[Rfam]
RNA sequence: GGGGGGAGGUCGGAUCCUGGGCUGUGUCCUGGCGCCCUGUGCUCCCGGUCUGUGAUGUUGGAUUCGCGCUCCCGGCCGCACAGCCGCCU
Numbered sequence: 001g002g003g004g005g006g007a008g009g010u011c012g013g014a015u016c017c018u019g020g021g022c023u024g025u026g027u028c029c030u031g032g033c034g035c036c037c038u039g040u041g042c043u044c045c046c047g048g049u050c051u052g053u054g055a056u057g058u059u060g061g062a063u064u065c066g067c068g069c070u071c072c073c074g075g076c077c078g079c080a081c082a083g084c085c086g087c088c089u
Stems, first nucleotide, its partner, number of pairs: 001089003005085002009081002011078003016075002019072003023068004027062003030057002033054003039050001041049003
RNA: mir-8799 microRNA precursor family